[Rfam]
RNA sequence: GCAACGCCCUAGGGGAGUUUCUAACUGAGAGCCCGGCCACAGCGGGCAACCCUUUGAACCUGAUCCGGGUCAUUCCGGCGGAGGGAAGCGGCGCGAACUCCGG
Numbered sequence: 001g002c003a004a005c006g007c008c009c010u011a012g013g014g015g016a017g018u019u020u021c022u023a024a025c026u027g028a029g030a031g032c033c034c035g036g037c038c039a040c041a042g043c044g045g046g047c048a049a050c051c052c053u054u055u056g057a058a059c060c061u062g063a064u065c066c067g068g069g070u071c072a073u074u075c076c077g078g079c080g081g082a083g084g085g086a087a088g089c090g091g092c093g094c095g096a097a098c099u100c101c102g103g
Stems, first nucleotide, its partner, number of pairs: 007090001009088002011053004017025003032046004059084003065078004
Annotation
This 103-nucleotide RNA sequence from Syntrophotalea acetylenivorans belongs to the Rfam family "TPP riboswitch aptamer (THI element)". Rfam describes the family as follows. Vitamin B(1) in its active form thiamin pyrophosphate (TPP) is an essential coenzyme that is synthesised by coupling of pyrimidine and thiazole moieties in bacteria. The base pairs follow the family's consensus structure, which is taken from published work. Its family is annotated with thiamine pyrophosphate binding in the Gene Ontology. A search with the family's covariance model found it, with a score of 60 bits.